This 108-nucleotide sequence from Listeria grayi belongs to the Rfam family "SAM riboswitch aptamer (S box leader)". It is one of the family's seed sequences. Lineage of the source: Bacteria > Bacillota > Caryophanales > Listeriaceae > Listeria grayi.
RNA sequence: CUCUUAUCUAGAGCGGCAGAGGGACUGGCCCUAUGAAGCCCGGCAACCUAACUUUUUUUAGUGAAGGUGCUAAUUCCAGCAACAUUUCUAAAUGUUGACAGAUAAGAG
Numbered sequence: 001c002u003c004u005u006a007u008c009u010a011g012a013g014c015g016g017c018a019g020a021g022g023g024a025c026u027g028g029c030c031c032u033a034u035g036a037a038g039c040c041c042g043g044c045a046a047c048c049u050a051a052c053u054u055u056u057u058u059u060a061g062u063g064a065a066g067g068u069g070c071u072a073a074u075u076c077c078a079g080c081a082a083c084a085u086u087u088c089u090a091a092a093u094g095u096u097g098a099c100a101g102a103u104a105a106g107a108g
Stems, first nucleotide, its partner, number of pairs: 001108008013041001015040003021031003025079004042071004047067002049063002075100001080097006
The base pairs follow the family's consensus structure, which is taken from published work.